RNA sequence: AUCGAAGUGCACGUGUCUUUUCCUGCUCAUGGAAGCUUUUGGCUGAGAGGGGAAUUUUUCUAUUUGAAAACUACAUACUGACCAUUCCUCACUGGGUUCGCCCGAUGAGGGAACUUUUGGACUCUUUUCUCAUUG
Dot-bracket structure: ...................(((((.(((.....(((.....)))..))))))))...............................((((((.((((....)))).))))))........................
Numbered sequence: 001a002u003c004g005a006a007g008u009g010c011a012c013g014u015g016u017c018u019u020u021u022c023c024u025g026c027u028c029a030u031g032g033a034a035g036c037u038u039u040u041g042g043c044u045g046a047g048a049g050g051g052g053a054a055u056u057u058u059u060c061u062a063u064u065u066g067a068a069a070a071c072u073a074c075a076u077a078c079u080g081a082c083c084a085u086u087c088c089u090c091a092c093u094g095g096g097u098u099c100g101c102c103c104g105a106u107g108a109g110g111g112a113a114c115u116u117u118u119g120g121a122c123u124c125u126u127u128u129c130u131c132a133u134u135g
Stems, first nucleotide, its partner, number of pairs: 020054005026049003034044003086111006093104004